RNA sequence: AAGUGUCUAGCAGGCAAGAUGUCGGCAUAGCUGAUGAAAAUAGAUAUUCGGCUGUGUCUCAUCGAGCCAACUAAACCUUAA
Numbered sequence: 001a002a003g004u005g006u007c008u009a010g011c012a013g014g015c016a017a018g019a020u021g022u023c024g025g026c027a028u029a030g031c032u033g034a035u036g037a038a039a040a041u042a043g044a045u046a047u048u049c050g051g052c053u054g055u056g057u058c059u060c061a062u063c064g065a066g067c068c069a070a071c072u073a074a075a076c077c078u079u080a081a
Stems, first nucleotide, its partner, number of pairs: 005076002008073003013068003018063004024058008
Dot-bracket structure: ....((.(((..(((..((((..((((((((...................)))))))).))))..)))..))).)).....

The record is an 81-nucleotide RNA from Aphidius gifuensis, which matches "mir-31 microRNA precursor family" in Rfam. Clan: mir-31 microRNA precursor family. Rfam 15.1 lists 1,181 matches to the family in 783 species. The family's consensus secondary structure was predicted with RNAalifold. A search with the family's covariance model found it, with a score of 66 bits. The source organism's lineage runs through Eukaryota, Bilateria, Hexapoda, Braconidae and Aphidius. The literature on the family includes a 2010 paper in Genes Dev by Chiang et al., "Mammalian microRNAs: experimental evaluation of novel and previously annotated genes".